[Rfam]
Nucleotides: 263
Stems, first nucleotide, its partner, number of pairs: 001037009012027006055200004060195001065187010077175003081170001083167001086164001088162002091159004096154003101150003109143003113138003121131003202249002205246003219242003225238005250262003
Number, partner (000 for none) and nucleotide at each position: 001037c002036a003035u004034c005033g006032c007031g008030a009029u010000g011000c012027u013026c014025u015024u016023c017022a018000u019000u020000c021000u022017u023016g024015g025014a026013g027012a028000a029009a030008u031007c032006g033005u034004g035003a036002u037001g038000a039000g040000g041000a042000u043000u044000u045000u046000a047000u048000c049000g050000a051000a052000a053000c054000g055200u056199c057198a058197g059000c060195u061000a062000a063000a064000g065187g066186a067185g068184u069183u070182g071181g072180u073179c074178c075000u076000u077175u078174a079173u080000g081170c082000g083167c084000c085000g086164c087000a088162a089161c090000a091159c092158a093157u094156c095000g096154c097153a098152c099000g100000c101150u102149u103148g104000g105000a106000a107000a108000a109143g110142g111141c112000a113138g114137g115136c116000c117000u118000a119000u120000u121131c122130c123129c124000a125000a126000u127000g128000c129123g130122g131121g132000u133000a134000c135000a136115g137114c138113u139000g140000g141111g142110c143109c144000c145000g146000a147000a148103c149102a150101g151000g152098g153097u154096g155000g156094g157093a158092u159091g160000g161089g162088u163000a164086g165000a166000a167083g168000c169000a170081g171000a172000a173079g174078u175077a176000u177000u178074g179073g180072a181071c182070u183069g184068g185067c186066u187065u188000a189000a190000a191000c192000a193000a194000c195060g196000c197058u198057u199056g200055g201000c202249u203248g204000a205246c206245c207244g208000g209000g210000a211000a212000a213000c214000c215000c216000c217000g218000c219242c220241c221240g222000a223000c224000a225238c226237u227236c228235c229234u230000g231000c232000a233000u234229a235228g236227g237226a238225g239000c240221u241220g242219g243000g244207u245206g246205g247000c248203c249202a250262g251261a252260u253000g254000u255000g256000c257000a258000c259000u260252a261251u262250c263000u
Ruegeria trans44 sRNA: a 263-nucleotide sequence from Cognatishimia maritima. The literature on the family includes a 2016 paper in Front Microbiol by Rivers et al., "Experimental Identification of Small Non-Coding RNAs in the Model Marine Bacterium Ruegeria pomeroyi DSS-3". The family's consensus secondary structure was predicted with RNAfold. Rfam classes the family as a small RNA.